[Rfam]
RNA sequence: AAAGGCGAACGGGGUGCGUAAACCUAUCGCCACGAUGAAGGCUCUGCCGCACUUGUAACCUUCAAGCCCAUGCAACGUAGGCGCGUUUGCCUGCAUGGGCUCCCGUUGUU
Numbered sequence: 001a002a003a004g005g006c007g008a009a010c011g012g013g014g015u016g017c018g019u020a021a022a023c024c025u026a027u028c029g030c031c032a033c034g035a036u037g038a039a040g041g042c043u044c045u046g047c048c049g050c051a052c053u054u055g056u057a058a059c060c061u062u063c064a065a066g067c068c069c070a071u072g073c074a075a076c077g078u079a080g081g082c083g084c085g086u087u088u089g090c091c092u093g094c095a096u097g098g099g100c101u102c103c104c105g106u107u108g109u110u
Stems, first nucleotide, its partner, number of pairs: 004031005011024002037063005065101010077090003
Dot-bracket structure: ...(((((..((..........))..))))).....(((((.................))))).((((((((((..(((........))).)))))))))).........